Shown here is a 116-nucleotide RNA from Streptomyces sp. 846.5, a member of the family "TPP riboswitch aptamer (THI element)". The source organism's lineage runs through Bacteria, Actinomycetota, Actinomycetes, Streptomycetaceae and Streptomyces. Vitamin B(1) in its active form thiamin pyrophosphate (TPP) is an essential coenzyme that is synthesised by coupling of pyrimidine and thiazole moieties in bacteria. Its family is annotated with thiamine pyrophosphate binding in the Gene Ontology.

RNA sequence: GAACACAUACGCGGGAGCUUGGACCCAUCCAGGCUGAGAGGGCGCCGAACACGGGGCGCCGACCGCCUGAACCUGACCGGGUAAUGCCGGCGUAGGGAGCUGAGCCUCGUGACGUC
Number, nucleotide and partner (000 for none) at each position: 001g000002a000003a000004c000005a000006c104007a000008u102009a101010c000011g066012c065013g064014g063015g000016a000017g034018c033019u032020u031021g030022g000023a000024c000025c000026c000027a000028u000029c000030c021031a020032g019033g018034c017035u000036g000037a000038g000039a000040g000041g060042g059043c058044g057045c056046c000047g000048a000049a000050c000051a000052c000053g000054g000055g000056g045057c044058g043059c042060c041061g000062a000063c014064c013065g012066c011067c000068u000069g000070a000071a000072c096073c095074u094075g093076a000077c090078c089079g088080g087081g000082u000083a000084a000085u000086g000087c080088c079089g078090g077091c000092g000093u075094a074095g073096g072097g000098a000099g000100c000101u009102g008103a000104g006105c000106c000107u000108c000109g000110u000111g000112a000113c000114g000115u000116c000